[Rfam]
Nucleotides: 332
Base pairs, nucleotide, nucleotide: 003042004041005040006039007038008037014032015031016030017029052108053107054106055105057103058102059101063097064096065095066094070091071090072089075082076081114323115322121321122320123319124318132308133307134306135305136304137303138302145181146180147179148178149177154172155171156170157169192220193219194218196217197216198215199214201211202210203209222296223295224294225293226292235289236288237287238286239285248267249266251264252263253262254261255260
Number, partner (000 for none) and nucleotide at each position: 001000c002000u003042u004041u005040c006039c007038g008037c009000c010000u011000u012000g013000a014032u015031u016030c017029u018000c019000g020000u021000u022000a023000a024000a025000a026000c027000a028000a029017g030016g031015g032014a033000a034000a035000u036000u037008g038007c039006g040005g041004a042003a043000u044000u045000a046000u047000a048000a049000a050000g051000u052108u053107u054106g055105u056000c057103u058102g059101g060000u061000a062000g063097c064096a065095c066094a067000a068000a069000a070091a071090c072089g073000c074000a075082g076081c077000a078000a079000u080000g081076g082075c083000g084000u085000a086000a087000g088000a089072c090071g091070u092000a093000a094066u095065g096064u097063g098000a099000a100000a101059u102058c103057a104000a105055a106054c107053a108052a109000u110000u111000a112000g113000c114323g115322g116000g117000c118000u119000g120000c121321g122320g123319g124318u125000u126000g127000c128000a129000g130000c131000u132308u133307g134306g135305c136304c137303g138302g139000u140000a141000a142000a143000a144000u145181g146180g147179a148178a149177u150000c151000a152000g153000a154172u155171c156170u157169g158000u159000c160000g161000a162000c163000g164000u165000a166000a167000a168000u169157c170156a171155g172154a173000g174000a175000c176000u177149a178148u179147u180146c181145c182000c183000u184000g185000a186000c187000u188000c189000a190000a191000a192220a193219g194218c195000g196217c197216u198215g199214c200000a201211u202210u203209c204000a205000c206000a207000a208000a209203g210202a211201a212000a213000c214199g215198c216197a217196g218194g219193c220192u221000u222296a223295c224294c225293g226292a227000g228000a229000u230000a231000a232000u233000g234000c235289g236288c237287c238286c239285c240000u241000a242000u243000g244000c245000a246000g247000g248267c249266g250000a251264c252263a253262a254261c255260c256000g257000u258000g259000a260255g261254g262253u263252u264251g265000a266249c267248g268000g269000c270000u271000u272000u273000g274000c275000g276000a277000g278000a279000a280000g281000a282000c283000a284000c285239g286238g287237g288236g289235c290000u291000u292226u293225c294224g295223g296222u297000u298000u299000a300000a301000c302138c303137c304136g305135g306134c307133c308132a309000u310000g311000a312000g313000g314000u315000u316000a317000u318124a319123c320122c321121c322115u323114u324000a325000a326000u327000a328000a329000a330000u331000c332000a

This 332-nucleotide RNA from Serratia odorifera belongs to the Rfam family "RNase E 5' UTR element". The source organism's lineage runs through Bacteria, Gammaproteobacteria, Enterobacterales, Yersiniaceae and Serratia odorifera. About the family: This family represents a conserved element found in the 5' UTR of RNase E mRNA. RNase E is a key regulatory enzyme in the pathway of mRNA degradation in E. coli that is able to auto-regulate the degradation of its own mRNA in response to changes in RNase E activity. This rne 5' UTR element acts as a sensor of cellular RNase E concentration enabling tight regulation of RNase E concentration and synthesis. The literature on the family includes a 2000 paper in Genes Dev by Diwa et al., "An evolutionarily conserved RNA stem-loop functions as a sensor that directs feedback regulation of RNase E gene expression". Rfam classes the family as a cis-regulatory element.